Glycine riboswitch aptamer: a 124-nucleotide sequence from Cognatundibacterium oligocarboniphilum.
A search with the family's covariance model found it, with a score of 45 bits.
Rfam describes the family as follows. This family represents the bacterial glycine riboswitch.
RNA sequence: ACCCCACACUCUGGAGAGUGGUAGCGGCGGCGCAAGCCAGCCGGACUACCCACCGAAGGUGCGCACGGGAUGGCAAACAUCGUUGCUCCCGUAAUCUCUCAGGUACCAGGACAGAGGGGUCUGC
Number, nucleotide and partner (000 for none) at each position: 001a000002c000003c000004c000005c000006a000007c118008a000009c116010u115011c114012u113013g112014g000015a000016g000017a000018g000019u000020g050021g049022u048023a047024g000025c000026g000027g000028c000029g000030g000031c000032g000033c000034a000035a000036g000037c000038c000039a000040g000041c000042c000043g000044g000045a000046c000047u023048a022049c021050c020051c000052a104053c103054c102055g100056a099057a000058g000059g098060u000061g096062c000063g000064c000065a092066c091067g090068g089069g088070a087071u000072g000073g000074c000075a000076a000077a000078c000079a000080u000081c000082g000083u000084u000085g000086c000087u070088c069089c068090c067091g066092u065093a000094a000095u000096c061097u000098c059099u056100c055101a000102g054103g053104u052105a000106c000107c000108a000109g000110g000111a000112c013113a012114g011115a010116g009117g000118g007119g000120u000121c000122u000123g000124c000